Rfam assigns this 96-nucleotide RNA from Knufia peltigerae to the family "tRNA". The source organism's lineage runs through Eukaryota, Fungi, Ascomycota, leotiomyceta and Knufia. The family's RNA type in Rfam is transfer RNA. Transfer RNA (tRNA) molecules are approximately 80 nucleotides in length. Their secondary structure includes four short double-helical elements and three loops (D, anti-codon, and T loops). Further hydrogen bonds mediate the characteristic L-shaped molecular structure. tRNAs have two regions of fundamental functional importance: the anti-codon, which is responsible for specific mRNA codon recognition, and the 3' end, to which the tRNAs corresponding amino acid is attached (by aminoacyl-tRNA synthetases). tRNAs cope with the degeneracy of the genetic code in two manners: having more than one tRNA (with a specific anti-codon) for a particular amino acid; and 'wobble' base-pairing, i.e. permitting non-standard base-pairing at the 3rd anti-codon position.
RNA sequence: GCCUCUAUAGUGUAGUGGUUAUCGCGUCGCACUUGUACUCGAAAGAAAGAAGCACAAGGUAUGCGAAGGUCGCUAGUUCAAUUCUGGCUGGAGGCA
Numbered sequence: 001g002c003c004u005c006u007a008u009a010g011u012g013u014a015g016u017g018g019u020u021a022u023c024g025c026g027u028c029g030c031a032c033u034u035g036u037a038c039u040c041g042a043a044a045g046a047a048a049g050a051a052g053c054a055c056a057a058g059g060u061a062u063g064c065g066a067a068g069g070u071c072g073c074u075a076g077u078u079c080a081a082u083u084c085u086g087g088c089u090g091g092a093g094g095c096a
Base pairs, nucleotide, nucleotide: 001095002094003093004092005091006090007089010025011024012023027066028065029064030063031062072088073087074086075085076084